The family of this 131-nucleotide sequence from Streptococcus pyogenes is "Plasmid RNAIII".
[Rfam]
Nucleotides: 131
Stems, first nucleotide, its partner, number of pairs: 002019007025044007053099004066095013103126010
Number, partner (000 for none) and nucleotide at each position: 001000a002019c003018a004017g005016a006015u007014a008013u009000u010000u011000a012000a013008g014007u015006a016005u017004c018003u019002g020000a021000u022000u023000a024000a025044u026043a027042a028041a029040g030039u031038a032000a033000u034000u035000a036000a037000a038031u039030a040029c041028u042027u043026u044025a045000c046000c047000a048000a049000a050000u051000u052000u053099u054098g055097g056096g057000u058000c059000u060000c061000g062000a063000c064000u065000u066095c067094u068093u069092u070091a071090a072089u073088u074087g075086a076085u077084u078083g079000g080000u081000g082000g083078u084077a085076a086075u087074c088073a089072a090071u091070u092069a093068a094067g095066g096056c097055u098054c099053g100000c101000a102000a103126c104125u105124u106123a107122u108121u109120u110119u111118c112117u113000u114000g115000g116000c117112g118111g119110a120109a121108a122107a123106u124105a125104a126103g127000u128000u129000g130000g131000u

Source information:
By type it is a non-coding RNA gene. This RNA is found in bacterial plasmids including pIP501. The sequence is in the family's curated seed alignment.